[Rfam]
RNA sequence: CUCUGUUUCGUAAAGAUUCAGGGCAGAAAGGGU
Dot-bracket structure: (((((..((.....))..)))))..........
L31-Firmicutes ribosomal protein leader: a 33-nucleotide RNA from Aneurinibacillus terranovensis.
The base pairs follow the family's consensus structure, which is taken from published work.
Its Rfam clan is "Ribosomal Protein L31 Leader clan".
NCBI's taxonomy places the organism under Bacteria, Bacillati, Bacillota, Caryophanales, Aneurinibacillus terranovensis.
A reference for the family is Eckert and Weinberg (2020), "Discovery of 20 novel ribosomal leader candidates in bacteria and archaea", BMC Microbiol.